[Rfam]
RNA sequence: ACGAUUUUGGCCAUUUACGGUCAGGGCCGACUGUUGCCUGAAAAAGGGUAA
Number, nucleotide and partner (000 for none) at each position: 001a000002c000003g000004a000005u000006u000007u000008u000009g022010g021011c020012c019013a000014u000015u000016u000017a000018c000019g012020g011021u010022c009023a000024g000025g000026g000027c000028c000029g000030a000031c000032u000033g000034u000035u000036g000037c000038c000039u000040g000041a000042a000043a000044a000045a000046g000047g000048g000049u000050a000051a000
A member of the RNA family "algC RNA" from Salmonella bongori, 51 nucleotides long.
Taxonomically the source falls in Salmonella bongori (Bacteria, Gammaproteobacteria, Enterobacterales, Salmonella).
The sequence is in the family's curated seed alignment.